A member of the RNA family "Glycine riboswitch aptamer" from Bacillus sp. FJAT-27916, 93 nucleotides long.
RNA sequence: AUGAAGGCAAGGGGAGAGACCGCAGGCUGCGGCGCCGAAGGAGCAAACGGCUGAGACCGUGAAUCUCUCAGGCAAAAGAACACUUGCUGGACG
Numbered sequence: 001a002u003g004a005a006g007g008c009a010a011g012g013g014g015a016g017a018g019a020c021c022g023c024a025g026g027c028u029g030c031g032g033c034g035c036c037g038a039a040g041g042a043g044c045a046a047a048c049g050g051c052u053g054a055g056a057c058c059g060u061g062a063a064u065c066u067c068u069c070a071g072g073c074a075a076a077a078g079a080a081c082a083c084u085u086g087c088u089g090g091a092c093g
Stems, first nucleotide, its partner, number of pairs: 006088006013081001020032004034073003037069002041067003047060002
The pairing is the family consensus, mapped onto this sequence. It scores 67 bits against the family's covariance model. Lineage of the source: Bacteria > Bacillati > Bacilli > Caryophanales > Bacillus.